[Rfam]
RNA sequence: CCUAUGCUUCCCGCAGCGGUCCCCUCUUUGGGGCCCUAGCUCCAGUGAGAGUCAGGGUUCAUUGCUCUGAACGCCACUGGCGCCCGGCCACGGUGAAGCUUGCUGAUCCGCGCCCGGGGCCCCGGUAAUCCCAUGGAUUUCCGGAGGGGUGUCCCACCACCUCGAUCCCGUCCCUCGAGGAACGACUCGAUGA
Numbered sequence: 001c002c003u004a005u006g007c008u009u010c011c012c013g014c015a016g017c018g019g020u021c022c023c024c025u026c027u028u029u030g031g032g033g034c035c036c037u038a039g040c041u042c043c044a045g046u047g048a049g050a051g052u053c054a055g056g057g058u059u060c061a062u063u064g065c066u067c068u069g070a071a072c073g074c075c076a077c078u079g080g081c082g083c084c085c086g087g088c089c090a091c092g093g094u095g096a097a098g099c100u101u102g103c104u105g106a107u108c109c110g111c112g113c114c115c116g117g118g119g120c121c122c123c124g125g126u127a128a129u130c131c132c133a134u135g136g137a138u139u140u141c142c143g144g145a146g147g148g149g150u151g152u153c154c155c156a157c158c159a160c161c162u163c164g165a166u167c168c169c170g171u172c173c174c175u176c177g178a179g180g181a182a183c184g185a186c187u188c189g190a191u192g193a
Stems, first nucleotide, its partner, number of pairs: 018154002021149007030123007039083002042080006051072002053069006085116003089112001091110003097104002124142002127139004160180006
The family of this 193-nucleotide sequence is "psaA RNA". It is annotated as a cis-regulatory element. The sequence is in the family's curated seed alignment. The base pairs follow the family's consensus structure, which is taken from published work.